[Rfam]
RNA sequence: AGCUUUGCAUAGUGGCAGAAUGGUGGCCAGUGAGGUUUAUCUGAGGCAUGAUUACUGCUAACUGAAACUUAUCCCACAUUCCUUAAAUAACAAGUGCAAGUAUGUUUUGUUUUAAUAAGUAUGGAUUUGCCGAAGAUC
Numbered sequence: 001a002g003c004u005u006u007g008c009a010u011a012g013u014g015g016c017a018g019a020a021u022g023g024u025g026g027c028c029a030g031u032g033a034g035g036u037u038u039a040u041c042u043g044a045g046g047c048a049u050g051a052u053u054a055c056u057g058c059u060a061a062c063u064g065a066a067a068c069u070u071a072u073c074c075c076a077c078a079u080u081c082c083u084u085a086a087a088u089a090a091c092a093a094g095u096g097c098a099a100g101u102a103u104g105u106u107u108u109g110u111u112u113u114a115a116u117a118a119g120u121a122u123g124g125a126u127u128u129g130c131c132g133a134a135g136a137u138c
Stems, first nucleotide, its partner, number of pairs: 020052002023049002026047003034042002083115003086111005092105001094103002
RNA: U4 spliceosomal RNA
Organism: Callorhinus ursinus